Source information:
Shown here is a 134-nucleotide sequence from Balaenoptera musculus, a member of the family "U11 spliceosomal RNA". Gene Ontology terms of the family: mRNA 5'-splice site recognition, U11 snRNP and pre-mRNA 5'-splice site binding.
RNA sequence: AAAAAGGGCUUCUGUUGUGAGUGGCACACGUAGGGCAGCUUGCUUGUUCUUUGUGCGGAAUCGACAUCAAGAGAUUUUGGAAGCAUAACUUUUUGGUACUUGGGCAGCUGGUGAUCAUUGGUCCUGAUGCCCUC
Numbered sequence: 001a002a003a004a005a006g007g008g009c010u011u012c013u014g015u016u017g018u019g020a021g022u023g024g025c026a027c028a029c030g031u032a033g034g035g036c037a038g039c040u041u042g043c044u045u046g047u048u049c050u051u052u053g054u055g056c057g058g059a060a061u062c063g064a065c066a067u068c069a070a071g072a073g074a075u076u077u078u079g080g081a082a083g084c085a086u087a088a089c090u091u092u093u094u095g096g097u098a099c100u101u102g103g104g105c106a107g108c109u110g111g112u113g114a115u116c117a118u119u120g121g122u123c124c125u126g127a128u129g130c131c132c133u134c
Stems, first nucleotide, its partner, number of pairs: 008084005013026005027055004032050007056079007102132004107128001109126003113123004
Rfam 15.1 lists 2,595 matches to the family in 1,202 species. A reference for the family is Montzka and Steitz (1988), "Additional low-abundance human small nuclear ribonucleoproteins: U11, U12, etc", Proc Natl Acad Sci U S A.